The family of this 149-nucleotide sequence from Plasmid ColIb-P9 is "Pseudoknot of the regulatory region of the repZ gene". The sequence is in the family's curated seed alignment. The literature on the family includes a 1998 paper in J Biol Chem by Asano and Mizobuchi, "An RNA pseudoknot as the molecular switch for translation of the repZ gene encoding the replication initiator of IncIalpha plasmid ColIb-P9". Its family is annotated with regulation of translation in the Gene Ontology. The family's consensus secondary structure is taken from published work.
[Rfam]
Nucleotides: 149
Stems, first nucleotide, its partner, number of pairs: 002062003009059015033148007041140003
Number, partner (000 for none) and nucleotide at each position: 001000a002062a003061g004060g005000a006000a007000a008000a009059c010058c011057c012056c013055c014054a015053c016052u017051a018050u019049c020048u021047u022046u023045c024000u025000u026000a027000c028000g029000a030000a031000c032000u033148u034147g035146g036145c037144g038143g039142a040000a041140c042139g043138a044000c045023g046022a047021a048020a049019g050018a051017u052016a053015g054014u055013g056012g057011g058010g059009g060004c061003c062002u063000c064000a065000c066000a067000g068000a069000a070000u071000a072000c073000g074000g075000g076000u077000a078000a079000a080000g081000u082000a083000u084000a085000a086000u087000g088000a089000a090000a091000c092000c093000g094000u095000a096000c097000c098000a099000g100000a101000g102000a103000u104000u105000c106000a107000a108000c109000c110000c111000u112000g113000u114000g115000c116000a117000g118000u119000g120000u121000a122000u123000a124000a125000a126000u127000a128000c129000a130000c131000g132000g133000c134000a135000c136000a137000a138043u139042c140041g141000c142039u143038c144037c145036g146035c147034c148033a149000u